[Rfam]
RNA sequence: AAGUGAAUUAAUCCAACUGACCUGAAAUGAAGAGAAUACUCAUUGCUGAUCACUU
Numbered sequence: 001a002a003g004u005g006a007a008u009u010a011a012u013c014c015a016a017c018u019g020a021c022c023u024g025a026a027a028u029g030a031a032g033a034g035a036a037u038a039c040u041c042a043u044u045g046c047u048g049a050u051c052a053c054u055u
Stems, first nucleotide, its partner, number of pairs: 001055006

Shown here is a 55-nucleotide RNA sequence from Odocoileus virginianus, a member of the family "Small nucleolar RNA SNORD2". Gene Ontology terms of the family: RNA processing and nucleolus. The family's consensus secondary structure was predicted with WAR.